[Rfam]
RNA sequence: GAGCGCCGCCCUCCUUGGGCGUUUCCUCCCUAGACUCGGGCCGCCUCGAAAGAGUGCGGCCUCUUUUUUUGGGGCU
Numbered sequence: 001g002a003g004c005g006c007c008g009c010c011c012u013c014c015u016u017g018g019g020c021g022u023u024u025c026c027u028c029c030c031u032a033g034a035c036u037c038g039g040g041c042c043g044c045c046u047c048g049a050a051a052g053a054g055u056g057c058g059g060c061c062u063c064u065u066u067u068u069u070u071g072g073g074g075c076u
Base pairs, nucleotide, nucleotide: 008020009019010018011017039061040060041059042058043057044056045054046053047052
This 76-nucleotide RNA from Stappia albiluteola belongs to the Rfam family "Makes More Granules Regulator RNA (mmgR)". By type it is a small RNA. The base pairs follow the family's consensus structure. Rfam's curators write: SuhB later renamed mmgR (makes more granules regulator) was a putative non-coding RNA found multiple times in the Agrobacterium tumefaciens genome and related alpha-proteobacteria. Other non-coding RNAs uncovered in the same analysis include: speF, ybhL, metA, and serC.Several studies inSinorhizobium meliloti showed that suhB element is indeed a non-coding RNA:firstly it was detected on Northern blot and called Sm8RNA, secondly in an RNAseq study referred to as SmelC689.The mutant phenotype's (strain lacking the small RNA) cytoplasm contains higher content of polyhydroxybutyrate (PBH)storage granules than wild type strain.